[Rfam]
RNA sequence: GGUUUGCAGGCAGUGUAGUUAUCUGAUUGUGUCCAUAAAUCCACAAUCACUAACUCCUCUGCCACCAAAAC
Numbered sequence: 001g002g003u004u005u006g007c008a009g010g011c012a013g014u015g016u017a018g019u020u021a022u023c024u025g026a027u028u029g030u031g032u033c034c035a036u037a038a039a040u041c042c043a044c045a046a047u048c049a050c051u052a053a054c055u056c057c058u059c060u061g062c063c064a065c066c067a068a069a070a071c
Base pairs, nucleotide, nucleotide: 003069004068005067006066009063010062012060013059015057017055018054019053020052021051024049025048026047027046028045029044030043031042
mir-34 microRNA precursor family: a 71-nucleotide sequence from Sylvia atricapilla. The family has 113 seed sequences and 2,256 matches in Rfam 15.1. Lineage of the source: Eukaryota > Sarcopterygii > Dipnotetrapodomorpha > Sylviinae > Sylvia. Rfam describes the family as follows. Human mir-34a was discovered computationally and later experimentally verified. The mature sequence is excised from the 5' arm of the hairpin.